The family of this 100-nucleotide sequence from Chitinivorax tropicus is "Glycine riboswitch aptamer". Gene Ontology term of the family: glycine biosynthetic process. Rfam describes the family as follows. This family represents the bacterial glycine riboswitch. The base pairs follow the family's consensus structure.

RNA sequence: CCCAAUCACUCUGGAGAGAGAUGGCCUGACCGCCAUCCGCCGAAGGGGCUAACGGCUGACUGGCCGGAAAAUCUCAGGUGCCAAGGACAGAGGGGUGAGU
Numbered sequence: 001c002c003c004a005a006u007c008a009c010u011c012u013g014g015a016g017a018g019a020g021a022u023g024g025c026c027u028g029a030c031c032g033c034c035a036u037c038c039g040c041c042g043a044a045g046g047g048g049c050u051a052a053c054g055g056c057u058g059a060c061u062g063g064c065c066g067g068a069a070a071a072u073c074u075c076a077g078g079u080g081c082c083a084a085g086g087a088c089a090g091a092g093g094g095g096u097g098a099g100u
Stems, first nucleotide, its partner, number of pairs: 006095002009092005020037004039079003042075002046073002053066002